DABA-DC-AT RNA: a 142-nucleotide RNA from Vibrio ishigakensis.
The organism belongs to Vibrio, within Bacteria.
A search with the family's covariance model found it, with a score of 107 bits.
RNA sequence: GCAAUCUCAGAGAGGCUCUGGGGGAUACGCGUGAUAACCAUUCUAAGCUGAUUGUGAUAUCACGUAGGGUAGGUACCAAACACUCCUUGUUUGGUAGACGGGAAGAUAUCGCCAGUGAUGGCAUGCAUAUAGGCACCCAACA
Numbered sequence: 001g002c003a004a005u006c007u008c009a010g011a012g013a014g015g016c017u018c019u020g021g022g023g024g025a026u027a028c029g030c031g032u033g034a035u036a037a038c039c040a041u042u043c044u045a046a047g048c049u050g051a052u053u054g055u056g057a058u059a060u061c062a063c064g065u066a067g068g069g070u071a072g073g074u075a076c077c078a079a080a081c082a083c084u085c086c087u088u089g090u091u092u093g094g095u096a097g098a099c100g101g102g103a104a105g106a107u108a109u110c111g112c113c114a115g116u117g118a119u120g121g122c123a124u125g126c127a128u129a130u131a132g133g134c135a136c137c138c139a140a141c142a
Stems, first nucleotide, its partner, number of pairs: 006022006029065008039054002074096009111122004

It is annotated as a cis-regulatory element.